[Rfam]
RNA: PyrD leader
RNA sequence: AUUCCCUUUCCGGGCGGGAUCGCACAUAAUCCCCUCCCGGUUUGCACACCGGGAAUCCAGGAGAGUUCAUGUAC
Number, nucleotide and partner (000 for none) at each position: 001a000002u000003u000004c000005c000006c000007u000008u000009u000010c000011c000012g000013g000014g000015c000016g000017g000018g000019a000020u000021c000022g000023c000024a000025c000026a000027u000028a000029a000030u000031c000032c000033c000034c000035u000036c053037c052038c051039g050040g049041u048042u000043u000044g000045c000046a000047c000048a041049c040050c039051g038052g037053g036054a000055a000056u000057c000058c000059a000060g000061g000062a000063g000064a000065g000066u000067u000068c000069a000070u000071g000072u000073a000074c000